[Rfam]
RNA sequence: GGCGUUAUAGCUCAGUUGGUUAGAGCGAACGACUCAUAAUCGUUAGGUCCCUGGUUCAAAUCCAGGUAACGCCA
Number, nucleotide and partner (000 for none) at each position: 001g073002g072003c071004g070005u069006u068007a067008u000009a000010g026011c025012u024013c023014a000015g000016u000017u000018g000019g000020u000021u000022a000023g013024a012025g011026c010027g000028a044029a043030c042031g041032a040033c000034u000035c000036a000037u000038a000039a000040u032041c031042g030043u029044u028045a000046g000047g000048u000049c000050c066051c065052u064053g063054g062055u000056u000057c000058a000059a000060a000061u000062c054063c053064a052065g051066g050067u007068a006069a005070c004071g003072c002073c001074a000

Background
Rfam assigns this 74-nucleotide sequence from Octadecabacter arcticus to the family "tRNA". The family's consensus secondary structure is taken from published work. It is annotated as a transfer RNA.